[Rfam]
RNA sequence: UGGGUCGGCAAGACGGUCGCGUCGACAGCCUUCGGGCCGUCGCCGAGGAACGUCCGGGCUCCACAGAGCAGGGCGGUGGGCAACACCCACCCGGGGCAACCCGCGAGAAAGUGCAACAGAAAGCAGACCGCCACGUGGCUCCAGGGCCGCGCGGUAAGGGUGAAACGGCGGUGUAAGAGACCACCAGCGGCUCGGGUGACCGGCCGGCUAUGUAAACCUCGCCCGGAGCAAGGUCAGACAGGGAACGCUCGAGGCUGCUCGCCGAGUUCCCGGGUAGACCGCUAGAGCGCUGCGGCAACGUAUCGCCGAGAUAGAUGGCCGUCCGCACCGUGCUUGCACGGCGCGACAGAACCCGGCGUACCAGCCGGCCCAUUCG
Numbered sequence: 001u002g003g004g005u006c007g008g009c010a011a012g013a014c015g016g017u018c019g020c021g022u023c024g025a026c027a028g029c030c031u032u033c034g035g036g037c038c039g040u041c042g043c044c045g046a047g048g049a050a051c052g053u054c055c056g057g058g059c060u061c062c063a064c065a066g067a068g069c070a071g072g073g074c075g076g077u078g079g080g081c082a083a084c085a086c087c088c089a090c091c092c093g094g095g096g097c098a099a100c101c102c103g104c105g106a107g108a109a110a111g112u113g114c115a116a117c118a119g120a121a122a123g124c125a126g127a128c129c130g131c132c133a134c135g136u137g138g139c140u141c142c143a144g145g146g147c148c149g150c151g152c153g154g155u156a157a158g159g160g161u162g163a164a165a166c167g168g169c170g171g172u173g174u175a176a177g178a179g180a181c182c183a184c185c186a187g188c189g190g191c192u193c194g195g196g197u198g199a200c201c202g203g204c205c206g207g208c209u210a211u212g213u214a215a216a217c218c219u220c221g222c223c224c225g226g227a228g229c230a231a232g233g234u235c236a237g238a239c240a241g242g243g244a245a246c247g248c249u250c251g252a253g254g255c256u257g258c259u260c261g262c263c264g265a266g267u268u269c270c271c272g273g274g275u276a277g278a279c280c281g282c283u284a285g286a287g288c289g290c291u292g293c294g295g296c297a298a299c300g301u302a303u304c305g306c307c308g309a310g311a312u313a314g315a316u317g318g319c320c321g322u323c324c325g326c327a328c329c330g331u332g333c334u335u336g337c338a339c340g341g342c343g344c345g346a347c348a349g350a351a352c353c354c355g356g357c358g359u360a361c362c363a364g365c366c367g368g369c370c371c372a373u374u375c376g
Stems, first nucleotide, its partner, number of pairs: 001372009012323007020045002023042004028037001050359003054356005059228004066260004071224005076090005091105001092103004106219002111217002113213003128159002130155003134151007167185002170182003187208001188206004193202003232280004241271006253263003287306003291302004